[Rfam]
RNA sequence: AUGAUCCCCGCCGGGAGAGAGCGGCCCACACCAUGUUGUGUCACAGCAUGGUGUGUCAGGGUCGCCGCCGAAGGAGCAACCGCCCCUGGAAACUCUCAGGCAAAACGGACCGCGGGGGGAUG
Numbered sequence: 001a002u003g004a005u006c007c008c009c010g011c012c013g014g015g016a017g018a019g020a021g022c023g024g025c026c027c028a029c030a031c032c033a034u035g036u037u038g039u040g041u042c043a044c045a046g047c048a049u050g051g052u053g054u055g056u057c058a059g060g061g062u063c064g065c066c067g068c069c070g071a072a073g074g075a076g077c078a079a080c081c082g083c084c085c086c087u088g089g090a091a092a093c094u095c096u097c098a099g100g101c102a103a104a105a106c107g108g109a110c111c112g113c114g115g116g117g118g119g120a121u122g
Stems, first nucleotide, its partner, number of pairs: 006117005012112003021065007067101003070097002074095003080088001
This 122-nucleotide RNA sequence from Magnetospirillum aberrantis belongs to the Rfam family "Glycine riboswitch aptamer". A search with the family's covariance model found it, with a score of 60 bits. Clan: Glycine riboswitch clan.